A member of the RNA family "Fluoride riboswitch aptamer (crcB RNA motif)" from Pontibacter ummariensis, 67 nucleotides long. The base pairs follow the family's consensus structure, which is taken from published work. Its family is annotated with positive regulation of gene expression and response to fluoride in the Gene Ontology.
RNA sequence: GUAUUACAUGGUGAUGGGGUACCACCAGAAACCGCCUAAAGCAAAGGCUGAUGACUCCUACAUGAAG
Numbered sequence: 001g002u003a004u005u006a007c008a009u010g011g012u013g014a015u016g017g018g019g020u021a022c023c024a025c026c027a028g029a030a031a032c033c034g035c036c037u038a039a040a041g042c043a044a045a046g047g048c049u050g051a052u053g054a055c056u057c058c059u060a061c062a063u064g065a066a067g
Base pairs, nucleotide, nucleotide: 010026011025012024013023016058017057018056019055020054034048035047036046037045